Notes
A member of the RNA family "ZMP/ZTP riboswitch aptamer (pfl RNA motif)" from Clostridium sp. MSTE9, 88 nucleotides long. The organism belongs to Clostridium, within Bacteria. It scores 66 bits against the family's covariance model. The family's consensus secondary structure is taken from published work.

RNA sequence: ACAGGCUUUUAUGACUGACGGGUAAUGUGGAGAUGACACCACAGGGGAAUAAAAGCUGUAUCUUCAGCCGACCGUCUGGGCAGCAUUU
Numbered sequence: 001a002c003a004g005g006c007u008u009u010u011a012u013g014a015c016u017g018a019c020g021g022g023u024a025a026u027g028u029g030g031a032g033a034u035g036a037c038a039c040c041a042c043a044g045g046g047g048a049a050u051a052a053a054a055g056c057u058g059u060a061u062c063u064u065c066a067g068c069c070g071a072c073c074g075u076c077u078g079g080g081c082a083g084c085a086u087u088u
Stems, first nucleotide, its partner, number of pairs: 004057009015046002017076005027042004065083001067081003